The family of this 156-nucleotide RNA sequence from Bacteroides uniformis is "Bacteroides sRNA BTnc231".
Rfam classes the family as a small RNA.
Lineage of the source: Bacteria > Bacteroidota > Bacteroidia > Bacteroides > Bacteroides uniformis.

RNA sequence: ACGUUUUUUUCAUAGAGAUUUAGAUUUAAGGUUAGAAGAAUUGUGGAAGUCGUGAGACUUCCCUUUUUUUCAUCUUAAAUUGUGUUCCAUUUACAGUUUUUUGUUUUUGACUGUAAUUGAACGAAGAAAAGCCAUUUCGUGAGAAAAGGCUUUUUU
Numbered sequence: 001a002c003g004u005u006u007u008u009u010u011c012a013u014a015g016a017g018a019u020u021u022a023g024a025u026u027u028a029a030g031g032u033u034a035g036a037a038g039a040a041u042u043g044u045g046g047a048a049g050u051c052g053u054g055a056g057a058c059u060u061c062c063c064u065u066u067u068u069u070u071c072a073u074c075u076u077a078a079a080u081u082g083u084g085u086u087c088c089a090u091u092u093a094c095a096g097u098u099u100u101u102u103g104u105u106u107u108u109g110a111c112u113g114u115a116a117u118u119g120a121a122c123g124a125a126g127a128a129a130a131g132c133c134a135u136u137u138c139g140u141g142a143g144a145a146a147a148g149g150c151u152u153u154u155u156u
Stems, first nucleotide, its partner, number of pairs: 025079008035071006045062007080124004088119002091116008126155008135146004